The family of this 62-nucleotide RNA sequence from Hydrocera triflora is "Plastid-psbA-4 3UTR RNA".

RNA sequence: GAAAGUAAGGGAGCAAUAAUUAUUUUCUUGUUUUACCAAGAGGACGUUAUUGCUCCUUUACU
Numbered sequence: 001g002a003a004a005g006u007a008a009g010g011g012a013g014c015a016a017u018a019a020u021u022a023u024u025u026u027c028u029u030g031u032u033u034u035a036c037c038a039a040g041a042g043g044a045c046g047u048u049a050u051u052g053c054u055c056c057u058u059u060a061c062u
Stems, first nucleotide, its partner, number of pairs: 007059012023044001025042006
Rfam's curators write: Plastid psbA-4 is a non-coding RNA (ncRNA) present in plastids. It was identified in inverted repeat sequences in the 3 prime untranslate region (3UTR) of photosystem II quinone-binding protein (psbA). By type it is a cis-regulatory element. Pairs were carried over by alignment from the consensus structure, which was predicted with LocARNA. The literature on the family includes a 2023 paper in Plant Commun by Richter et al., "Retrograde signaling in plants: A critical review focusing on the GUN pathway and beyond". Lineage of the source: Eukaryota > Tracheophyta > Magnoliopsida > Pentapetalae > Hydrocera. Clan: Plastid-psbA 3UTR RNA clan.